[Rfam]
RNA sequence: AACAAAUGAUGUAAUAUCCUAUUCCAUUUCUGAAUACUCAAAGUGUGGAAAUGUCCCAACUGAUGUU
Dot-bracket structure: ((((...........................................................))))